[Rfam]
RNA sequence: CCCGGGGCUCGCGCCCGGGGCUUUGCUCUUUCGCCCUUCCAGGGCU
Numbered sequence: 001c002c003c004g005g006g007g008c009u010c011g012c013g014c015c016c017g018g019g020g021c022u023u024u025g026c027u028c029u030u031u032c033g034c035c036c037u038u039c040c041a042g043g044g045c046u
Base pairs, nucleotide, nucleotide: 001020002019003018005016006015007014008013033045034044035043036042037041